[Rfam]
The record is a 97-nucleotide sequence from Actinotalea soli, which matches "Glycine riboswitch aptamer" in Rfam. Lineage of the source: Bacteria > Bacillati > Actinomycetota > Micrococcales > Actinotalea. Gene Ontology term of the family: glycine biosynthetic process. The base pairs follow the family's consensus structure.

RNA sequence: CGAACCACGGCGGGAGAGUCCUUCCCGCACGUCGGCAAGGCGCCGAAGGAGCAACCCUCCCCGGGAAUCUCUCAGGCCCACGUACCGCCGUGGCGAA
Numbered sequence: 001c002g003a004a005c006c007a008c009g010g011c012g013g014g015a016g017a018g019u020c021c022u023u024c025c026c027g028c029a030c031g032u033c034g035g036c037a038a039g040g041c042g043c044c045g046a047a048g049g050a051g052c053a054a055c056c057c058u059c060c061c062c063g064g065g066a067a068u069c070u071c072u073c074a075g076g077c078c079c080a081c082g083u084a085c086c087g088c089c090g091u092g093g094c095g096a097a
Stems, first nucleotide, its partner, number of pairs: 006092008020040004042077003045073002049071003055064002